[Rfam]
RNA sequence: UCCACAUAUUCGCUGAGUUUCCGAUAGAACCGGAAAGCAGGGGAACCAAUUGCGACAGCUUGUAGAAAGUACGGCUUGUCGCCGGGGUGAAUCAGCAUGCUCGUCAUAAAGGCAGCAAGCUGUAGGGCGAUUCUCUAGACGCCCGAAUCCGUCAGCUAACCUUGUAAGCGUUGAUAGAGAGGGUGA
Number, nucleotide and partner (000 for none) at each position: 001u000002c000003c000004a000005c000006a000007u000008a000009u000010u000011c170012g169013c168014u167015g000016a000017g000018u036019u035020u034021c033022c032023g031024a000025u000026a000027g000028a000029a000030c000031c023032g022033g021034a020035a019036a018037g165038c164039a163040g162041g161042g160043g000044a000045a000046c000047c084048a000049a000050u000051u000052g000053c000054g000055a000056c000057a000058g000059c000060u000061u000062g000063u000064a000065g000066a000067a000068a000069g000070u000071a000072c000073g000074g000075c000076u000077u000078g000079u000080c000081g000082c000083c000084g047085g150086g149087g148088u000089g000090a000091a000092u000093c122094a121095g120096c119097a000098u000099g000100c000101u000102c000103g000104u000105c000106a000107u000108a000109a000110a000111g000112g000113c000114a000115g000116c000117a000118a000119g096120c095121u094122g093123u000124a000125g144126g143127g142128c141129g000130a000131u000132u000133c000134u000135c000136u000137a000138g000139a000140c000141g128142c127143c126144c125145g000146a000147a000148u087149c086150c085151g000152u000153c000154a000155g000156c000157u000158a000159a000160c042161c041162u040163u039164g038165u037166a000167a014168g013169c012170g011171u000172u000173g000174a000175u000176a000177g000178a000179g000180a000181g000182g000183g000184u000185g000186a000
c-di-AMP riboswitch aptamer (ydaO/yuaA leader): a 186-nucleotide RNA from Paenibacillus catalpae. The organism belongs to Paenibacillus, within Bacteria. It scores 85 bits against the family's covariance model.